[Rfam]
RNA sequence: CGCGUCUGGUAGAAAUGCUAGGCGUGAUUGGGCAGAAGUCAGCAGAGGUCAUAGUAGUCAAACGCUUAGCGUAAUGGGUGAGAUAAGGCGAAGGAC
Numbered sequence: 001c002g003c004g005u006c007u008g009g010u011a012g013a014a015a016u017g018c019u020a021g022g023c024g025u026g027a028u029u030g031g032g033c034a035g036a037a038g039u040c041a042g043c044a045g046a047g048g049u050c051a052u053a054g055u056a057g058u059c060a061a062a063c064g065c066u067u068a069g070c071g072u073a074a075u076g077g078g079u080g081a082g083a084u085a086a087g088g089c090g091a092a093g094g095a096c
Stems, first nucleotide, its partner, number of pairs: 001026002004023008039046002048096003057089003067081001